[Rfam]
RNA sequence: CAACCCGUCAUGGGGGAGUAGCCGCCCUGCGCCGCAGGGGCUUGCGUCAACACACUGGGUUCGAUGGGCCCUGGCGCAAGCGAGGGAUGUUGAGUCCCUGUCUGGCAAGACCUUUGACCGGGCGCUUCCGCCGUGGGCCGGGAGGCGCUCGGGUCAUUGGCAGCCGCCGGCCCUU
Dot-bracket structure: .........................(((.......))).((((((((((.......(((((.....))))))))))))))).......(.....................................................................................)
Shown here is a 175-nucleotide RNA from Inhella gelatinilytica, a member of the family "Manganese Mn2+ riboswitch aptamer (yybP-ykoY)". About the family: This RNA was originally discovered in E. coli during a large scale screen and was named SraF. The family was later found to exist upstream of related families of protein genes in many bacteria, including the the yybP and ykoK genes in B. subtilis. Gene Ontology term of the family: manganese ion binding. A search with the family's covariance model found it, with a score of 67 bits.